[Rfam]
RNA sequence: CUCUUAUCCUGAGCUGGUGGAGGGACAGGCCCAAUGAAGCCCAGCAACCUGUUAUUUGAGGAUUUUUGAGAUGCUCGUUAACAAGGUGCUAACCUGACGCAAGGAAAUUGAUCCUUGAUCGAUAAGAG
Numbered sequence: 001c002u003c004u005u006a007u008c009c010u011g012a013g014c015u016g017g018u019g020g021a022g023g024g025a026c027a028g029g030c031c032c033a034a035u036g037a038a039g040c041c042c043a044g045c046a047a048c049c050u051g052u053u054a055u056u057u058g059a060g061g062a063u064u065u066u067u068g069a070g071a072u073g074c075u076c077g078u079u080a081a082c083a084a085g086g087u088g089c090u091a092a093c094c095u096g097a098c099g100c101a102a103g104g105a106a107a108u109u110g111a112u113c114c115u116u117g118a119u120c121g122a123u124a125a126g127a128g
Stems, first nucleotide, its partner, number of pairs: 001128008013042001016041003022032003026099001029095001043090004048086002050083004100117006
Shown here is a 128-nucleotide RNA sequence from Mesobacillus persicus, a member of the family "SAM riboswitch aptamer (S box leader)". A search with the family's covariance model found it, with a score of 71 bits. The organism belongs to Mesobacillus, within Bacteria. The family's consensus secondary structure is taken from published work.